[Rfam]
The record is a 67-nucleotide RNA sequence from Odontophorus gujanensis, which matches "mir-302 microRNA precursor family" in Rfam. It scores 63 bits against the family's covariance model. Rfam 15.1 lists 2,090 matches to the family in 516 species.
RNA sequence: CCUCUACUUUAACAUGGAGGUACUUGCUGGACAGCUGAAAAAGUAAGUGCUUCCAUGUUUUCAAAGG
Numbered sequence: 001c002c003u004c005u006a007c008u009u010u011a012a013c014a015u016g017g018a019g020g021u022a023c024u025u026g027c028u029g030g031a032c033a034g035c036u037g038a039a040a041a042a043g044u045a046a047g048u049g050c051u052u053c054c055a056u057g058u059u060u061u062c063a064a065a066g067g
Base pairs, nucleotide, nucleotide: 001067002066003065005063011059012058013057014056015055016054017053018052019051020050021049022048023047024046025045026044027043028042